[Rfam]
RNA sequence: AAAAAAGCAGGAGCUGUUUGUCUUCAUGAACAGUCUCAUAUGCUGCAGGGAGAUGCCUGACAAUGUCAUUGAGUGAACCUAGAUUCUCUAUUGAUAAUACAAGGUUCAGUAAACAGCUGUGUAUUU
Numbered sequence: 001a002a003a004a005a006a007g008c009a010g011g012a013g014c015u016g017u018u019u020g021u022c023u024u025c026a027u028g029a030a031c032a033g034u035c036u037c038a039u040a041u042g043c044u045g046c047a048g049g050g051a052g053a054u055g056c057c058u059g060a061c062a063a064u065g066u067c068a069u070u071g072a073g074u075g076a077a078c079c080u081a082g083a084u085u086c087u088c089u090a091u092u093g094a095u096a097a098u099a100c101a102a103g104g105u106u107c108a109g110u111a112a113a114c115a116g117c118u119g120u121g122u123a124u125u126u
Stems, first nucleotide, its partner, number of pairs: 006044002014033003060120003064115003074108007
Dot-bracket structure: .....((......(((..............))).........))...............(((.(((.......(((((((.....................)))))))....)))..)))......

Source information: This 126-nucleotide RNA from Colocasia esculenta belongs to the Rfam family "Small nucleolar RNA snoR74". It scores 49 bits against the family's covariance model. It is annotated as an H/ACA-box small nucleolar RNA. On this family, see Marker et al., Curr Biol 2002: "Experimental RNomics: identification of 140 candidates for small non-messenger RNAs in the plant Arabidopsis thaliana".